[Rfam]
RNA sequence: UCGCGGGACCGGGCCCCUCUGACGGCAGACUUGCCGUGAUGUCGGACCGCAUCG
Number, nucleotide and partner (000 for none) at each position: 001u000002c000003g000004c000005g000006g048007g047008a000009c045010c044011g043012g042013g000014c000015c000016c000017c000018u000019c000020u000021g000022a037023c036024g035025g034026c033027a032028g000029a000030c000031u000032u027033g026034c025035c024036g023037u022038g000039a000040u000041g000042u012043c011044g010045g009046a000047c007048c006049g000050c000051a000052u000053c000054g000

Shown here is a 54-nucleotide RNA from Sphingomonas sabuli, a member of the family "terC RNA". The family's RNA type in Rfam is cis-regulatory element. NCBI's taxonomy places the organism under Bacteria, Pseudomonadati, Alphaproteobacteria, Sphingomonadaceae, Sphingomonas. The match comes from Rfam's covariance-model search (61 bits). The base pairs follow the family's consensus structure, which is taken from published work.